tRNA: a 72-nucleotide RNA sequence from Echinococcus granulosus. Pairs were carried over by alignment from the consensus structure, which is taken from published work.
[Rfam]
RNA sequence: GGGGAUGGAGCUCAGUGGUGGAGCGCUCGCUAUGCAUGCGAGAGGCCCCGGGUUCGAUCCCCGGCAUCUCCA
Dot-bracket structure: (((((((..((((.......)))).(((((.......))))).....(((((.......)))))))))))).